[Rfam]
RNA: Group II catalytic intron D1-D4-1
RNA sequence: UACCGACGUUGCGAAACGUCGGGAUGAUCAUGCAGAAGUCAGCAGAGGCCAUAGUAGGUGCGCCUACCGAAGGGC
Numbered sequence: 001u002a003c004c005g006a007c008g009u010u011g012c013g014a015a016a017c018g019u020c021g022g023g024a025u026g027a028u029c030a031u032g033c034a035g036a037a038g039u040c041a042g043c044a045g046a047g048g049c050c051a052u053a054g055u056a057g058g059u060g061c062g063c064c065u066a067c068c069g070a071a072g073g074g075c
Stems, first nucleotide, its partner, number of pairs: 001026002003022008039046002048075003057068004